RNA: MIR807 microRNA precursor family
Organism: Oryza barthii
RNA sequence: AACCACACUAUCGAUGAAUGAAUUCACCCGUGUGAUGAUGUGGUUGUUCCAUCUAGGAUAAUGACGUGGCAUAUCCAAUUAAUUUCGUGCGAUGGCUGAUAAUUAGGAUGUCACGUCCUCGUCUUAUAUGAAACAACCAUAUCAUCUCACGGGUGAAUCCAUUCAUUGAUAGUGUGGUU
Numbered sequence: 001a002a003c004c005a006c007a008c009u010a011u012c013g014a015u016g017a018a019u020g021a022a023u024u025c026a027c028c029c030g031u032g033u034g035a036u037g038a039u040g041u042g043g044u045u046g047u048u049c050c051a052u053c054u055a056g057g058a059u060a061a062u063g064a065c066g067u068g069g070c071a072u073a074u075c076c077a078a079u080u081a082a083u084u085u086c087g088u089g090c091g092a093u094g095g096c097u098g099a100u101a102a103u104u105a106g107g108a109u110g111u112c113a114c115g116u117c118c119u120c121g122u123c124u125u126a127u128a129u130g131a132a133a134c135a136a137c138c139a140u141a142u143c144a145u146c147u148c149a150c151g152g153g154u155g156a157a158u159c160c161a162u163u164c165a166u167u168g169a170u171a172g173u174g175u176g177g178u179u
Base pairs, nucleotide, nucleotide: 001179002178003177004176005175006174007173009171010170011169012168013167014166015165017163018162019161022158023157024156025155026154027153028152030150031149032148035145036144037143038142039141041139042138043137044136045135046134047133048132051129052128054126055125057123058122063117064116065115069111070110071109072108075107076106077104078103079102080101081100088099